[Rfam]
RNA sequence: UGUGUUCCCGCUUCAACAGUGCUUGAACGGAACAGG
Numbered sequence: 001u002g003u004g005u006u007c008c009c010g011c012u013u014c015a016a017c018a019g020u021g022c023u024u025g026a027a028c029g030g031a032a033c034a035g036g
Base pairs, nucleotide, nucleotide: 001036003034004033005032006031007030008029010028012027013026014025015024016023017021
Iron response element I: a 36-nucleotide RNA sequence from Eptatretus burgeri. On this family, see Walden et al., Science 2006: "Structure of dual function iron regulatory protein 1 complexed with ferritin IRE-RNA". The match comes from Rfam's covariance-model search (43 bits). NCBI's taxonomy places the organism under Eukaryota, Bilateria, Deuterostomia, Craniata, Eptatretus. The family has 62 seed sequences and 6,829 matches in Rfam 15.1.